[Rfam]
RNA sequence: GAGACCGGUGACCCGGCGGCGCCCGACGCAAAAGACCAAAGAACCGGGGAUAGAACCGAACCCGCCCCCACCGCCCCCGUCGAUCACCCAGGGGAGUGAAUAUGCCCCGCUCGGCUGGCGUGGCGAGGUGAUCGUGGUGCAGCGUCUGUUCCACCAACCGCACACAUGCAUCGGCCCUCGCGGGGACUGCCAUCCCACAGCGAGGGCCUGAUCAUCGGGAAGGGCCGCCUCCCCG
Numbered sequence: 001g002a003g004a005c006c007g008g009u010g011a012c013c014c015g016g017c018g019g020c021g022c023c024c025g026a027c028g029c030a031a032a033a034g035a036c037c038a039a040a041g042a043a044c045c046g047g048g049g050a051u052a053g054a055a056c057c058g059a060a061c062c063c064g065c066c067c068c069c070a071c072c073g074c075c076c077c078c079g080u081c082g083a084u085c086a087c088c089c090a091g092g093g094g095a096g097u098g099a100a101u102a103u104g105c106c107c108c109g110c111u112c113g114g115c116u117g118g119c120g121u122g123g124c125g126a127g128g129u130g131a132u133c134g135u136g137g138u139g140c141a142g143c144g145u146c147u148g149u150u151c152c153a154c155c156a157a158c159c160g161c162a163c164a165c166a167u168g169c170a171u172c173g174g175c176c177c178u179c180g181c182g183g184g185g186a187c188u189g190c191c192a193u194c195c196c197a198c199a200g201c202g203a204g205g206g207c208c209u210g211a212u213c214a215u216c217g218g219g220a221a222g223g224g225c226c227g228c229c230u231c232c233c234c235g
Stems, first nucleotide, its partner, number of pairs: 007216004018075004084099004089094001114143004173208005179202003183196004218233002221230002
Dot-bracket structure: ......((((.......((((..................................................))))........((((.(....).))))..............((((......................)))).............................(((((.(((.((((......))))...))).)))))....)))).((.((......)).))..
Source information:
The family of this 235-nucleotide RNA sequence is "Streptomyces sRNA 4677". The family has 12 seed sequences and 563 matches in Rfam 15.1. By type it is a small RNA. Rfam describes the family as follows. Located in the intergenic region between anti-sigma factor SCO4677 gene and a putative regulatory protein gene SCO4676. scr4677 expression requires the SCO4677 activity and scr4677 sRNA itself seem to affect the levels of the SCO4676-associated transcripts. A search with the family's covariance model found it, with a score of 78 bits. The pairing is the family consensus, mapped onto this sequence.